RNA sequence: CUUUACAAUGGUGUAAAGACUUAUGCGGAAAUAAACCACCGCGUACCGAGUAGAACUUGGAUUGGACUCCUAACUAAAGGAGAAAACAAAUG
Number, nucleotide and partner (000 for none) at each position: 001c018002u017003u016004u015005a014006c013007a000008a000009u000010g000011g000012u000013g006014u005015a004016a003017a002018g001019a000020c000021u000022u045023a044024u043025g042026c041027g040028g039029a000030a000031a000032u000033a000034a000035a000036c000037c000038a000039c028040c027041g026042c025043g024044u023045a022046c060047c059048g058049a057050g000051u000052a000053g000054a000055a000056c000057u049058u048059g047060g046061a000062u000063u000064g000065g000066a000067c000068u000069c000070c000071u000072a000073a000074c000075u000076a000077a000078a000079g000080g000081a000082g000083a000084a000085a000086a000087c000088a000089a000090a000091u000092g000
The family of this 92-nucleotide RNA is "freshwater-2 RNA".